[Rfam]
RNA sequence: UUCUUCAGGGAUCGCCCCCCGUCAGCGAGGUUUCGCCCACGGGGGCGCUACUG
Numbered sequence: 001u002u003c004u005u006c007a008g009g010g011a012u013c014g015c016c017c018c019c020c021g022u023c024a025g026c027g028a029g030g031u032u033u034c035g036c037c038c039a040c041g042g043g044g045g046c047g048c049u050a051c052u053g
Stems, first nucleotide, its partner, number of pairs: 016045007025036004
This 53-nucleotide RNA from Salibaculum griseiflavum belongs to the Rfam family "ffh sRNA". The match comes from Rfam's covariance-model search (62 bits). The family's RNA type in Rfam is small RNA. The base pairs follow the family's consensus structure, which is taken from published work. For this family Rfam cites "Identification of candidate structured RNAs in the marine organism 'Candidatus Pelagibacter ubique'" (Meyer et al., BMC Genomics, 2009).